[Rfam]
RNA: Plant signal recognition particle RNA
Organism: Triticum aestivum
RNA sequence: GCCGAGCUCAGUCACGCGAGCUUGUAACCUGAGUGGGGGCUUUAAGGUGGUGUGGACGCUGUUGCAGCGUUGUGGGCCUGGUUUGGAUGUGCAAUUGCUGGCCCGCCGUUCCAAGUUGAGUAGUGGACUGCUGGGGGCCUAUGCGAAAGCUGGGCCUCACGGGCCAUGAUGUGGCAGGCAAAGCGUGAGGCUGGUUUCACAGAGCAGCGACAACUGCCCGCUUCCAACGGUGGAAGGAUAACGGGCUGCUGCACAUCUGGGCCGGUUGGGCCUCACAGCCUGCUCCAUCGAACCACCAUUUUU
Number, nucleotide and partner (000 for none) at each position: 001g040002c039003c038004g023005a022006g021007c020008u019009c018010a000011g000012u000013c000014a000015c000016g000017c000018g009019a008020g007021c006022u005023u004024g000025u000026a000027a000028c037029c036030u035031g000032a000033g000034u000035g030036g029037g028038g003039g002040c001041u000042u000043u000044a302045a301046g300047g299048u298049g297050g296051u295052g294053u000054g293055g000056a000057c290058g289059c000060u287061g286062u000063u000064g283065c282066a281067g280068c000069g000070u278071u277072g276073u275074g274075g273076g272077c000078c270079u269080g263081g262082u261083u260084u259085g258086g257087a256088u000089g254090u253091g252092c000093a000094a250095u000096u000097g000098c000099u248100g247101g246102c245103c244104c243105g242106c237107c236108g000109u235110u234111c233112c232113a231114a000115g228116u227117u226118g225119a000120g224121u000122a222123g221124u220125g165126g164127a000128c162129u161130g160131c000132u000133g000134g158135g157136g156137g155138c154139c153140u152141a151142u000143g150144c149145g000146a000147a000148a000149g144150c143151u141152g140153g139154g138155c137156c136157u135158c134159a000160c130161g129162g128163g000164c126165c125166a000167u000168g000169a000170u000171g000172u000173g218174g217175c216176a215177g214178g000179c000180a000181a000182a000183g000184c209185g208186u207187g000188a000189g000190g000191c202192u201193g200194g000195u000196u000197u000198c000199a000200c193201a192202g191203a000204g000205c000206a000207g186208c185209g184210a000211c000212a000213a000214c177215u176216g175217c174218c173219c000220g124221c123222u122223u000224c120225c118226a117227a116228c115229g000230g000231u113232g112233g111234a110235a109236g107237g106238a000239u000240a000241a000242c105243g104244g103245g102246c101247u100248g099249c000250u094251g000252c091253a090254c089255a000256u087257c086258u085259g084260g083261g082262c081263c080264g000265g000266u000267u000268g000269g079270g078271c000272c076273u075274c074275a073276c072277a071278g070279c000280c067281u066282g065283c064284u000285c000286c061287a060288u000289c058290g057291a000292a000293c054294c052295a051296c050297c049298a048299u047300u046301u045302u044303u000